[Rfam]
RNA: mir-9229 microRNA precursor family
RNA sequence: GAGACAGCCUUAUGGAGCAGAACUUGUUUCAGUGGGGCUUUUGUGCUCACUGAGUCUUCCCCUUGAGUGUGUCACU
Numbered sequence: 001g002a003g004a005c006a007g008c009c010u011u012a013u014g015g016a017g018c019a020g021a022a023c024u025u026g027u028u029u030c031a032g033u034g035g036g037g038c039u040u041u042u043g044u045g046c047u048c049a050c051u052g053a054g055u056c057u058u059c060c061c062c063u064u065g066a067g068u069g070u071g072u073c074a075c076u
Stems, first nucleotide, its partner, number of pairs: 001075001003073004009067004014062002017059001019057001022055002029053008037044002